Rfam assigns this 107-nucleotide RNA to the family "RT-5 RNA". Rfam classes the family as a small RNA.
RNA sequence: CUGCGCCCGUGAAGGAUGAAGCAUACUUCUUAGUAGUAUUUUGCGGGCAAUCAGAGUAUGUUCAGUCCGGUGGCAAUAAGCAUGGCUUUAUUGCUUCAAAGCCUUUU
Numbered sequence: 001c002u003g004c005g006c007c008c009g010u011g012a013a014g015g016a017u018g019a020a021g022c023a024u025a026c027u028u029c030u031u032a033g034u035a036g037u038a039u040u041u042u043g044c045g046g047g048c049a050a051u052c053a054g055a056g057u058a059u060g061u062u063c064a065g066u067c068c069g070g071u072g073g074c075a076a077u078a079a080g081c082a083u084g085g086c087u088u089u090a091u092u093g094c095u096u097c098a099a100a101g102c103c104u105u106u107u
Stems, first nucleotide, its partner, number of pairs: 005048007014068002017065001021061008036052001038051003074093006